[Rfam]
RNA sequence: AUAUAGUGUGACAUGCCCGUUUGGGUUAUUACUCUGAUGAAUUAUUUAUUAAUUAAUUGAUUUUGGGUAACAGAGUGUUACACUUAG
Number, nucleotide and partner (000 for none) at each position: 001a000002u087003a000004u000005a084006g083007u082008g081009u080010g079011a078012c077013a076014u075015g000016c000017c073018c000019g071020u070021u069022u000023g000024g000025g000026u000027u000028a000029u000030u000031a000032c000033u000034c000035u000036g000037a000038u000039g000040a000041a000042u000043u000044a000045u000046u000047u000048a000049u000050u000051a000052a000053u000054u000055a000056a000057u000058u000059g000060a000061u000062u000063u000064u000065g000066g000067g000068u000069a021070a020071c019072a000073g017074a000075g014076u013077g012078u011079u010080a009081c008082a007083c006084u005085u000086a000087g002
RNA: MIR2617 microRNA precursor family
Organism: Medicago truncatula